Rfam assigns this 71-nucleotide RNA sequence from Adineta ricciae to the family "tRNA". Gene Ontology term of the family: triplet codon-amino acid adaptor activity. By type it is a transfer RNA. The base pairs follow the family's consensus structure, which is taken from published work.
[Rfam]
RNA sequence: GCUACUGUAGUAUAAUGGUAGUAUCACGGUUUGUCGGACCGAAGACCAGGGUUCAAUUCCCUGCAGUAGCG
Number, nucleotide and partner (000 for none) at each position: 001g070002c069003u068004a067005c066006u065007g064008u000009a000010g024011u023012a022013u021014a000015a000016u000017g000018g000019u000020a000021g013022u012023a011024u010025c000026a000027c041028g040029g039030u038031u000032u000033g000034u000035c000036g000037g000038a030039c029040c028041g027042a000043a000044g000045a000046c000047c063048a062049g061050g060051g059052u000053u000054c000055a000056a000057u000058u000059c051060c050061c049062u048063g047064c007065a006066g005067u004068a003069g002070c001071g000